[Rfam]
RNA: Small nucleolar RNA snoR27
RNA sequence: CCUGGAUCGAUGAUGUACAUGAAAAACUGCGUUAUCUAUCUGUUAAUUCCUUAAUUGGAACUGAUGAUAAUAUAGUCUUCCUGAGAUCCGAU
Numbered sequence: 001c002c003u004g005g006a007u008c009g010a011u012g013a014u015g016u017a018c019a020u021g022a023a024a025a026a027c028u029g030c031g032u033u034a035u036c037u038a039u040c041u042g043u044u045a046a047u048u049c050c051u052u053a054a055u056u057g058g059a060a061c062u063g064a065u066g067a068u069a070a071u072a073u074a075g076u077c078u079u080c081c082u083g084a085g086a087u088c089c090g091a092u
Base pairs, nucleotide, nucleotide: 003090004089005088006087007086